RNA sequence: UUUUUAAUGAUGAAACGACUUAUAACUGAUUAAAAGUUGAUGAUAACACUUCUUCACCAAGAUCUCUGAAAAG
Numbered sequence: 001u002u003u004u005u006a007a008u009g010a011u012g013a014a015a016c017g018a019c020u021u022a023u024a025a026c027u028g029a030u031u032a033a034a035a036g037u038u039g040a041u042g043a044u045a046a047c048a049c050u051u052c053u054u055c056a057c058c059a060a061g062a063u064c065u066c067u068g069a070a071a072a073g
Base pairs, nucleotide, nucleotide: 002073003072004071005070
The family of this 73-nucleotide sequence from Piliocolobus tephrosceles is "small nucleolar RNA snoR17". Rfam links the family to the GO terms nucleolus and RNA processing. Pairs were carried over by alignment from the consensus structure. It is annotated as a C/D-box small nucleolar RNA. A search with the family's covariance model found it, with a score of 60 bits.